RNA sequence: CAGCGUCUUCGGGGCAGGGUGAGAAAAUGCAUAAGCAUUUUCAAUUCCCGAUCGGCGGUAAAGCCCGCGACCUACUGUAUGAGAAUGUGAUUCCAUACAUUGGUGGACCUGGGGAAGUUCCAGGGCCGACGGUAUAGUCCGGAUGGGAGAAGACAUGA
Numbered sequence: 001c002a003g004c005g006u007c008u009u010c011g012g013g014g015c016a017g018g019g020u021g022a023g024a025a026a027a028u029g030c031a032u033a034a035g036c037a038u039u040u041u042c043a044a045u046u047c048c049c050g051a052u053c054g055g056c057g058g059u060a061a062a063g064c065c066c067g068c069g070a071c072c073u074a075c076u077g078u079a080u081g082a083g084a085a086u087g088u089g090a091u092u093c094c095a096u097a098c099a100u101u102g103g104u105g106g107a108c109c110u111g112g113g114g115a116a117g118u119u120c121c122a123g124g125g126c127c128g129a130c131g132g133u134a135u136a137g138u139c140c141g142g143a144u145g146g147g148a149g150a151a152g153a154c155a156u157g158a
Stems, first nucleotide, its partner, number of pairs: 003156001005154006017049003051138002053128002055068004063126002072103002108124005130141003
RNA: FMN riboswitch aptamer (RFN element)